[Rfam]
This 86-nucleotide RNA sequence from Metabacillus sediminilitoris belongs to the Rfam family "c-di-GMP-I riboswitch aptamer".
RNA sequence: CUUCGAUAAUAGCAACCCCUUCGAAAGAAGGAUACGCAAAGCUGCGGACCUAAGGAGAAUUUCUCUAUGGUAGCCGGGUUACCGAA
Numbered sequence: 001c002u003u004c005g006a007u008a009a010u011a012g013c014a015a016c017c018c019c020u021u022c023g024a025a026a027g028a029a030g031g032a033u034a035c036g037c038a039a040a041g042c043u044g045c046g047g048a049c050c051u052a053a054g055g056a057g058a059a060u061u062u063c064u065c066u067a068u069g070g071u072a073g074c075c076g077g078g079u080u081a082c083c084g085a086a
Stems, first nucleotide, its partner, number of pairs: 012037002018031005040080004045076003048071003055065004